[Rfam]
Rfam assigns this 134-nucleotide RNA from Methanosarcina acetivorans to the family "Group II catalytic intron D1-D4-7". Taxonomically the source falls in Methanosarcina acetivorans (Archaea, Methanobacteriati, Methanosarcinales, Methanosarcina). Rfam's curators write: Group II introns are found in rRNA, tRNA and mRNA of organelles in fungi, plants and protists, and also in mRNA in bacteria. The literature on the family includes a 2001 paper in Trends Genet by Bonen and Vogel, "The ins and outs of group II introns".
RNA sequence: UACCUUCUCCAUUUGAGGUAAUCCUAUUGGGACAUGCAUAAAUGGUAACGUUUGUGUUUGAAGCUCACAUGACAAUAUCAAGACUCAAGGGCAAAGUAUUAGGCUGUUGGUGCAAACCUUAUGCAUGUCACGGG
Numbered sequence: 001u002a003c004c005u006u007c008u009c010c011a012u013u014u015g016a017g018g019u020a021a022u023c024c025u026a027u028u029g030g031g032a033c034a035u036g037c038a039u040a041a042a043u044g045g046u047a048a049c050g051u052u053u054g055u056g057u058u059u060g061a062a063g064c065u066c067a068c069a070u071g072a073c074a075a076u077a078u079c080a081a082g083a084c085u086c087a088a089g090g091g092c093a094a095a096g097u098a099u100u101a102g103g104c105u106g107u108u109g110g111u112g113c114a115a116a117c118c119u120u121a122u123g124c125a126u127g128u129c130a131c132g133g134g
Base pairs, nucleotide, nucleotide: 002019003018004017005016006015028069029068031066032065033060034059036057037056038055039054040053041052042051043050044049084089090105091104092103110126111125112124113123114122